Source information:
DABA-DC-AT RNA: a 158-nucleotide RNA sequence from Vibrio rumoiensis. The family's consensus secondary structure is taken from published work. Taxonomically the source falls in Vibrio rumoiensis (Bacteria, Pseudomonadati, Pseudomonadota, Vibrionales). Rfam's curators put it in the seed alignment.
RNA sequence: ACAAUCUCAAGGUUCAAAGUUUUACCUUAGGGGGAUACGCGUAAGGACAUUCAAGCUGAUUGUGCCAUUACGUAUGAGUAGGUACUGCUAACAUCAUGUUAUCAGUAGACGGGAACCGAUACGUAAAAGACAAACGUAUUGUUAUAGGAAGCCCAACA
Numbered sequence: 001a002c003a004a005u006c007u008c009a010a011g012g013u014u015c016a017a018a019g020u021u022u023u024a025c026c027u028u029a030g031g032g033g034g035a036u037a038c039g040c041g042u043a044a045g046g047a048c049a050u051u052c053a054a055g056c057u058g059a060u061u062g063u064g065c066c067a068u069u070a071c072g073u074a075u076g077a078g079u080a081g082g083u084a085c086u087g088c089u090a091a092c093a094u095c096a097u098g099u100u101a102u103c104a105g106u107a108g109a110c111g112g113g114a115a116c117c118g119a120u121a122c123g124u125a126a127a128a129g130a131c132a133a134a135c136g137u138a139u140u141g142u143u144a145u146a147g148g149a150a151g152c153c154c155a156a157c158a
Base pairs, nucleotide, nucleotide: 006032007031008030010028011027039073040072041071042070043069044068046066047063048062049061083107084106085105086104087103089101090100091099092098119139120138121137122136123135124134